[Rfam]
RNA sequence: CGCACACGCUAGGGGUGUUGGCCCGCAGUGCAAGCUGCAGGCCGACUGAGAAAGUCCCUUUGAACCUGAUUGAGGUAAUCCUCGCGCAGGGAAGCCAGUCUGACUGCGG
Numbered sequence: 001c002g003c004a005c006a007c008g009c010u011a012g013g014g015g016u017g018u019u020g021g022c023c024c025g026c027a028g029u030g031c032a033a034g035c036u037g038c039a040g041g042c043c044g045a046c047u048g049a050g051a052a053a054g055u056c057c058c059u060u061u062g063a064a065c066c067u068g069a070u071u072g073a074g075g076u077a078a079u080c081c082u083c084g085c086g087c088a089g090g091g092a093a094g095c096c097a098g099u100c101u102g103a104c105u106g107c108g109g
Stems, first nucleotide, its partner, number of pairs: 008095003011059004016053001017046007065090004071084004
Background: Rfam assigns this 109-nucleotide RNA from Rhodoferax antarcticus to the family "TPP riboswitch aptamer (THI element)". About the family: Vitamin B(1) in its active form thiamin pyrophosphate (TPP) is an essential coenzyme that is synthesised by coupling of pyrimidine and thiazole moieties in bacteria. The previously detected thiamin-regulatory element, thi box was extended, resulting in a new, highly conserved RNA secondary structure, the THI element, which is widely distributed in eubacteria and also occurs in some archaea. Analysis of operon structures identified a large number of new candidate thiamin-regulated genes, mostly transporters, in various prokaryotic organisms. The THI element is a riboswitch that directly binds to TPP to regulate gene expression through a variety of mechanisms in archaea, bacteria and eukaryotes. through a variety of mechanisms in archaea, bacteria and eukaryotes. NCBI's taxonomy places the organism under Bacteria, Betaproteobacteria, Comamonadaceae, Rhodoferax, Rhodoferax antarcticus. A search with the family's covariance model found it, with a score of 55 bits. The family has 115 seed sequences and 16,130 matches in Rfam 15.1.